Rfam assigns this 224-nucleotide RNA from Virgibacillus salinus to the family "T-box leader".
[Rfam]
RNA sequence: AAAAAGCCAGUGAUGGAAAAAGUAAUGAGAAGUAUGUGGAAAGAGAGAAAAUGUCAUAGGCUGAGAACAUUUUCACAUGAUGCUCUGAUGAAAGACAUUCCUUAGGCUCUAUAUCGAAUACAUAGUACGUAGAUAUAGACGUUUUGCAGGCGUUAACUGUGAAGAGCGGGUGCUUUAAAAAGCAUCAACUAGGGUGGCAACGCGGGUUAACUCUCGUCCCUUAU
Numbered sequence: 001a002a003a004a005a006g007c008c009a010g011u012g013a014u015g016g017a018a019a020a021a022g023u024a025a026u027g028a029g030a031a032g033u034a035u036g037u038g039g040a041a042a043g044a045g046a047g048a049a050a051a052u053g054u055c056a057u058a059g060g061c062u063g064a065g066a067a068c069a070u071u072u073u074c075a076c077a078u079g080a081u082g083c084u085c086u087g088a089u090g091a092a093a094g095a096c097a098u099u100c101c102u103u104a105g106g107c108u109c110u111a112u113a114u115c116g117a118a119u120a121c122a123u124a125g126u127a128c129g130u131a132g133a134u135a136u137a138g139a140c141g142u143u144u145u146g147c148a149g150g151c152g153u154u155a156a157c158u159g160u161g162a163a164g165a166g167c168g169g170g171u172g173c174u175u176u177a178a179a180a181a182g183c184a185u186c187a188a189c190u191a192g193g194g195u196g197g198c199a200a201c202g203c204g205g206g207u208u209a210a211c212u213c214u215c216g217u218c219c220c221u222u223a224u
Base pairs, nucleotide, nucleotide: 007106008105015101016100017099018098025089026088028086029085030084039074040073049072050071051070052069053068054067109138110137111136112135113134114133115132140152141151142150169186170185171184172183173182174181175180191221192220193219194218202217203216204215205214206213

Background:
By type it is a cis-regulatory leader. The literature on the family includes a 1994 paper in J Bacteriol by Grundy et al., "Interaction between the acceptor end of tRNA and the T box stimulates antitermination in the Bacillus subtilis tyrS gene: a new role for the discriminator base".